[Rfam]
RNA: TUC338
Organism: Myotis brandtii
RNA sequence: UUGAAGGCGUGGAGACUGAAGUUCUCUAUAUCCACAGAACAGGCGUGGCACAGGCAGCGGCAGUGCAGCUUUUCCGCUGUCCCACCAGUGUGCCUCAUUCCUGGGCUAGGUGCCAUACGGCAGGUGAGAGGGCUGUUCAGUCUCCAUGCCCUCGAUCUUUGGCUACU
Numbered sequence: 001u002u003g004a005a006g007g008c009g010u011g012g013a014g015a016c017u018g019a020a021g022u023u024c025u026c027u028a029u030a031u032c033c034a035c036a037g038a039a040c041a042g043g044c045g046u047g048g049c050a051c052a053g054g055c056a057g058c059g060g061c062a063g064u065g066c067a068g069c070u071u072u073u074c075c076g077c078u079g080u081c082c083c084a085c086c087a088g089u090g091u092g093c094c095u096c097a098u099u100c101c102u103g104g105g106c107u108a109g110g111u112g113c114c115a116u117a118c119g120g121c122a123g124g125u126g127a128g129a130g131g132g133c134u135g136u137u138c139a140g141u142c143u144c145c146a147u148g149c150c151c152u153c154g155a156u157c158u159u160u161g162g163c164u165a166c167u
Stems, first nucleotide, its partner, number of pairs: 002154003006150002010146011023132002026130002029126004035103003039099001045095001048093005059081005107120001112118001